Rfam assigns this 116-nucleotide RNA from Clostridium homopropionicum to the family "SAM riboswitch aptamer (S box leader)".
Gene Ontology term of the family: regulation of gene expression.
[Rfam]
RNA sequence: AGCUUAUCUAGAGCGGUGGAGGGACUGGCCCGAUGAAACCCGGCAACCAGUAUAAAUUGCAGUUAUGGUUUAUACAAUGGUGCUAAAUCCUGCAGCUACAUGCUGGGAGAUGAGGA
Dot-bracket structure: ..((((((....(.(((...(((.[.[[)))......))))((((.((.(((((((((........)))))))))...))))))...(]].]((((.....))))..)))))))..
Numbered sequence: 001a002g003c004u005u006a007u008c009u010a011g012a013g014c015g016g017u018g019g020a021g022g023g024a025c026u027g028g029c030c031c032g033a034u035g036a037a038a039c040c041c042g043g044c045a046a047c048c049a050g051u052a053u054a055a056a057u058u059g060c061a062g063u064u065a066u067g068g069u070u071u072a073u074a075c076a077a078u079g080g081u082g083c084u085a086a087a088u089c090c091u092g093c094a095g096c097u098a099c100a101u102g103c104u105g106g107g108a109g110a111u112g113a114g115g116a
Stems, first nucleotide, its partner, number of pairs: 003114006013041001015040003021031003025092001027090002042084004047080002050075009088108001093105004